[Rfam]
RNA sequence: GGUUGUUGCCAUAAGGACAAACAAGCUCCCUCUUCUGAAUGCAUUGAGGAUGCUUGCUGGCAGAAUCGAACCAAUAAACCAAUUGCCACUACUGAGUAA
Numbered sequence: 001g002g003u004u005g006u007u008g009c010c011a012u013a014a015g016g017a018c019a020a021a022c023a024a025g026c027u028c029c030c031u032c033u034u035c036u037g038a039a040u041g042c043a044u045u046g047a048g049g050a051u052g053c054u055u056g057c058u059g060g061c062a063g064a065a066u067c068g069a070a071c072c073a074a075u076a077a078a079c080c081a082a083u084u085g086c087c088a089c090u091a092c093u094g095a096g097u098a099a
Base pairs, nucleotide, nucleotide: 006099007098008097009096